RNA: Nuclear RNase P
Organism: Fasciolopsis buskii
RNA sequence: GCCGGCCGGAGUGUGUGGGUGCGAGGCUCUGAGGGCACUGGUUGCUCCAUCUACUCGCGGGAAGGUCUGAGGCGAGCGGCAUUUGACUCUCGAGAUGGGAGGCCUCCUCGCGGGAGGUGCGGGCCAACAGAAAUGGCGGCCGGGUGUGGCUACGCACCGGAUGAACGGGCUUUCGAGGCCGGGAGGGUCAGGCCACACCCAGCCAUGAGACGGUCUGCGCCGAGCGCGUACAGCGAGAUCCGCACGAGUGAACUCAAUUCAGACUACUACCGGCGCGGC
Numbered sequence: 001g002c003c004g005g006c007c008g009g010a011g012u013g014u015g016u017g018g019g020u021g022c023g024a025g026g027c028u029c030u031g032a033g034g035g036c037a038c039u040g041g042u043u044g045c046u047c048c049a050u051c052u053a054c055u056c057g058c059g060g061g062a063a064g065g066u067c068u069g070a071g072g073c074g075a076g077c078g079g080c081a082u083u084u085g086a087c088u089c090u091c092g093a094g095a096u097g098g099g100a101g102g103c104c105u106c107c108u109c110g111c112g113g114g115a116g117g118u119g120c121g122g123g124c125c126a127a128c129a130g131a132a133a134u135g136g137c138g139g140c141c142g143g144g145u146g147u148g149g150c151u152a153c154g155c156a157c158c159g160g161a162u163g164a165a166c167g168g169g170c171u172u173u174c175g176a177g178g179c180c181g182g183g184a185g186g187g188u189c190a191g192g193c194c195a196c197a198c199c200c201a202g203c204c205a206u207g208a209g210a211c212g213g214u215c216u217g218c219g220c221c222g223a224g225c226g227c228g229u230a231c232a233g234c235g236a237g238a239u240c241c242g243c244a245c246g247a248g249u250g251a252a253c254u255c256a257a258u259u260c261a262g263a264c265u266a267c268u269a270c271c272g273g274c275g276c277g278g279c
Stems, first nucleotide, its partner, number of pairs: 001279004007272003012246007021058005033047005067262005077222004087101005102118006119218007138204003